[Rfam]
The record is a 72-nucleotide RNA sequence from Medicago truncatula, which matches "MIR2629 microRNA precursor family" in Rfam.
RNA sequence: UUUUUUUUUUUUCCUCGGCAGUUAACUGCAGCCGGAUUUCUAAAACUUCGGCAGUUAACUGUCGAUGGGGUA
Numbered sequence: 001u002u003u004u005u006u007u008u009u010u011u012u013c014c015u016c017g018g019c020a021g022u023u024a025a026c027u028g029c030a031g032c033c034g035g036a037u038u039u040c041u042a043a044a045a046c047u048u049c050g051g052c053a054g055u056u057a058a059c060u061g062u063c064g065a066u067g068g069g070g071u072a
Base pairs, nucleotide, nucleotide: 012068013067015065016064017063018062019061020060021059022058023057024056025055026054027053028052029051

Its family is annotated with RISC complex and miRNA-mediated post-transcriptional gene silencing in the Gene Ontology.